[Rfam]
RNA sequence: GGGUUUAACUCCUGCUUGUUACCGUUUCAUUCAGCCGAGGCUGAAUGUCGUUUUGGUGUCUGAUUCGGUAAGGAACCGGGAGCACCAUCUGCGUAGGCUUGAGGUUUAAGGCUUUCACCGCCUACGGUCUUGGAUAGCCCCCGCCAGGCAGGGACCCCAAUCUUUCAACUGGCACAUUUAACUGCGCCA
Numbered sequence: 001g002g003g004u005u006u007a008a009c010u011c012c013u014g015c016u017u018g019u020u021a022c023c024g025u026u027u028c029a030u031u032c033a034g035c036c037g038a039g040g041c042u043g044a045a046u047g048u049c050g051u052u053u054u055g056g057u058g059u060c061u062g063a064u065u066c067g068g069u070a071a072g073g074a075a076c077c078g079g080g081a082g083c084a085c086c087a088u089c090u091g092c093g094u095a096g097g098c099u100u101g102a103g104g105u106u107u108a109a110g111g112c113u114u115u116c117a118c119c120g121c122c123u124a125c126g127g128u129c130u131u132g133g134a135u136a137g138c139c140c141c142c143g144c145c146a147g148g149c150a151g152g153g154a155c156c157c158c159a160a161u162c163u164u165u166c167a168a169c170u171g172g173c174a175c176a177u178u179u180a181a182c183u184g185c186g187c188c189a
Base pairs, nucleotide, nucleotide: 002157003156005154006153011148012147013146014145023050024049028047029046030045031044032043033042034041035040054087055086056085057084058083059082060079061078062077064075065074066073091144092143093142096139097138098137099136104135105134106133107132108131109130110129111128112127113126171188172187173186175184176183
Rfam assigns this 189-nucleotide RNA sequence from Pseudomonas sp. TAD18 to the family "Pseudomonas sRNA P27". A search with the family's covariance model found it, with a score of 199 bits. Pairs were carried over by alignment from the consensus structure, which was predicted with WAR. The literature on the family includes a 2006 paper in Nucleic Acids Res by Livny et al., "Identification of 17 Pseudomonas aeruginosa sRNAs and prediction of sRNA-encoding genes in 10 diverse pathogens using the bioinformatic tool sRNAPredict2". The family's RNA type in Rfam is small RNA.